[Rfam]
RNA sequence: ACCGCUGAGCCAUCUCUCCAGCCCCUAAAACUUUUUUUAAAAGAAAAAUGUGACUCUGCUUUAAAUUAAGAAAGUAGUUUAUGGACUGGAGAGAUGGCUCAGUGGU
Number, nucleotide and partner (000 for none) at each position: 001a000002c105003c104004g103005c102006u101007g100008a099009g098010c097011c096012a095013u094014c093015u092016c091017u090018c089019c088020a087021g086022c000023c084024c083025c000026u000027a000028a000029a000030a000031c000032u000033u000034u000035u000036u000037u000038u000039a000040a000041a000042a000043g000044a000045a000046a000047a000048a000049u000050g000051u000052g000053a000054c000055u000056c000057u000058g000059c000060u000061u000062u000063a000064a000065a000066u000067u000068a000069a000070g000071a000072a000073a000074g000075u000076a000077g000078u000079u000080u000081a000082u000083g024084g023085a000086c021087u020088g019089g018090a017091g016092a015093g014094a013095u012096g011097g010098c009099u008100c007101a006102g005103u004104g003105g002106u000

This 106-nucleotide RNA sequence from Nannospalax galili belongs to the Rfam family "mir-3473 microRNA precursor family". Gene Ontology terms of the family: RISC complex, miRNA-mediated post-transcriptional gene silencing and cellular response to mechanical stimulus. Pairs were carried over by alignment from the consensus structure, which was predicted with RNAalifold. The source organism's lineage runs through Eukaryota, Chordata, Euteleostomi, Theria and Nannospalax.